Rfam assigns this 101-nucleotide sequence from Fontibacillus phaseoli to the family "Purine riboswitch aptamer".
The match comes from Rfam's covariance-model search (70 bits).
RNA sequence: AAAUUACAGUUUUAUGCUUUUCGUAUAAUUCCGGGGAUCGGCCUGGAAGUCUCUACGAGGUCACCGUAAAUGAUCUGGCUACGAAAAGAAGAAGCGCCGCA
Numbered sequence: 001a002a003a004u005u006a007c008a009g010u011u012u013u014a015u016g017c018u019u020u021u022c023g024u025a026u027a028a029u030u031c032c033g034g035g036g037a038u039c040g041g042c043c044u045g046g047a048a049g050u051c052u053c054u055a056c057g058a059g060g061u062c063a064c065c066g067u068a069a070a071u072g073a074u075c076u077g078g079c080u081a082c083g084a085a086a087a088g089a090a091g092a093a094g095c096g097c098c099g100c101a
Base pairs, nucleotide, nucleotide: 018087019086020085021084022083023082024081025080029048030047031046032045033044034043035042058076059075060074061073062072063071
About this RNA:
Lineage of the source: Bacteria > Bacilli > Caryophanales > Paenibacillaceae > Fontibacillus. Rfam's curators write: Riboswitches are metabolite binding domains within certain messenger RNAs that serve as precision sensors for their corresponding targets. Allosteric rearrangement of mRNA structure is mediated by ligand binding, and this results in modulation of gene expression. A class of riboswitches that selectively recognises guanine and becomes saturated at concentrations as low as 5 nM. In Bacillus subtilis, this mRNA motif is located on at least five separate transcriptional units that together encode 17 genes that are mostly involved in purine transport and purine nucleotide biosynthesis. It has also been shown that some members of this family are specific for adenine instead. Hence this family are termed purine riboswitches.